RNA sequence: UAACCUUCGCAUAACUGGCGGAAGUGGGAUUACCACAAGGGAGUGCGAAAGGAUGUAUGCCGGCCGCCUGGGCGCCUCUU
Numbered sequence: 001u002a003a004c005c006u007u008c009g010c011a012u013a014a015c016u017g018g019c020g021g022a023a024g025u026g027g028g029a030u031u032a033c034c035a036c037a038a039g040g041g042a043g044u045g046c047g048a049a050a051g052g053a054u055g056u057a058u059g060c061c062g063g064c065c066g067c068c069u070g071g072g073c074g075c076c077u078c079u080u
Stems, first nucleotide, its partner, number of pairs: 004051001006049007015040002017068005024036004058074004
This 80-nucleotide sequence from Alicyclobacillus tolerans belongs to the Rfam family "ZMP/ZTP riboswitch aptamer (pfl RNA motif)". A reference for the family is Jones and Ferre-D'Amare (2015), "Recognition of the bacterial alarmone ZMP through long-distance association of two RNA subdomains", Nat Struct Mol Biol. The organism belongs to Alicyclobacillus, within Bacteria. The base pairs follow the family's consensus structure, which is taken from published work.